[Rfam]
RNA sequence: AAUCGUUAAUAUAGUUUAACUCAUAUAUUUCCUGAAUAUGGCAGGAUGUUUCUACAAGGAACCUUAAAUUUCUUACUAUGAGUGAUUUGUUUGUAUGC
Numbered sequence: 001a002a003u004c005g006u007u008a009a010u011a012u013a014g015u016u017u018a019a020c021u022c023a024u025a026u027a028u029u030u031c032c033u034g035a036a037u038a039u040g041g042c043a044g045g046a047u048g049u050u051u052c053u054a055c056a057a058g059g060a061a062c063c064u065u066a067a068a069u070u071u072c073u074u075a076c077u078a079u080g081a082g083u084g085a086u087u088u089g090u091u092u093g094u095a096u097g098c
Stems, first nucleotide, its partner, number of pairs: 019083007030046005056074006
The record is a 98-nucleotide RNA sequence from Clostridium acetobutylicum, which matches "Purine riboswitch aptamer" in Rfam.
NCBI's taxonomy places the organism under Bacteria, Clostridia, Eubacteriales, Clostridiaceae, Clostridium acetobutylicum.